[Rfam]
Rfam assigns this 76-nucleotide RNA from Thalassobium sp. R2A62 to the family "Singlet oxygen resistance RNA X". Rfam classes the family as a small RNA. A reference for the family is Berghoff et al. (2009), "Photooxidative stress-induced and abundant small RNAs in Rhodobacter sphaeroides", Mol Microbiol. Rfam links the family to the GO term response to photooxidative stress. SorX (RSs2461)like SorY is a singlet oxygen induced sRNA that counteracts oxidative stress by targeting mRNA for a transporter in Rhodobacter. It also has an impact on resistance against organic hydroperoxides. The source organism's lineage runs through Bacteria, Pseudomonadota, Rhodobacterales, Paracoccaceae and Thalassobium.
RNA sequence: UUACCCCUGGUGUUGGGCACGACAAACACCAAACCUCCCUGUUGGACUUAGCCCCGCCUCGUGCGGGGCUUUUUUU
Numbered sequence: 001u002u003a004c005c006c007c008u009g010g011u012g013u014u015g016g017g018c019a020c021g022a023c024a025a026a027c028a029c030c031a032a033a034c035c036u037c038c039c040u041g042u043u044g045g046a047c048u049u050a051g052c053c054c055c056g057c058c059u060c061g062u063g064c065g066g067g068g069c070u071u072u073u074u075u076u
Base pairs, nucleotide, nucleotide: 008031009030010029011028012027013026014025050070051069052068053067054066055065056064057063